[Rfam]
RNA sequence: ACCAUCCUUUUCUUGGGGUUGCGCUACUGUCCAGUGAACAUCUAGUGAGGGCAGUACUGCUAAUGCUUAGAUAACACAUUCGUAUCAGUUAGAGCUUUGCUUUAUCUUGGUGUAAUUUUUGGAAAC
Numbered sequence: 001a002c003c004a005u006c007c008u009u010u011u012c013u014u015g016g017g018g019u020u021g022c023g024c025u026a027c028u029g030u031c032c033a034g035u036g037a038a039c040a041u042c043u044a045g046u047g048a049g050g051g052c053a054g055u056a057c058u059g060c061u062a063a064u065g066c067u068u069a070g071a072u073a074a075c076a077c078a079u080u081c082g083u084a085u086c087a088g089u090u091a092g093a094g095c096u097u098u099g100c101u102u103u104a105u106c107u108u109g110g111u112g113u114a115a116u117u118u119u120u121g122g123a124a125a126c
Base pairs, nucleotide, nucleotide: 006018007017008016009015021060022059023058026055027054028053029052030051031050032049038046039045082113083112084111085110086109087108090104091103092102093101094100095099